[Rfam]
RNA: Mammalian CPEB3 ribozyme
RNA sequence: AACUUCACCCAGAAGGCCACAGCAGAAGCACUUAUGACACGGCCUGUAAGAUUCCAACAAAAUCUGUGAAUUCUGCU
Numbered sequence: 001a002a003c004u005u006c007a008c009c010c011a012g013a014a015g016g017c018c019a020c021a022g023c024a025g026a027a028g029c030a031c032u033u034a035u036g037a038c039a040c041g042g043c044c045u046g047u048a049a050g051a052u053u054c055c056a057a058c059a060a061a062a063u064c065u066g067u068g069a070a071u072u073c074u075g076c077u
Stems, first nucleotide, its partner, number of pairs: 015044004021077007028040001049065005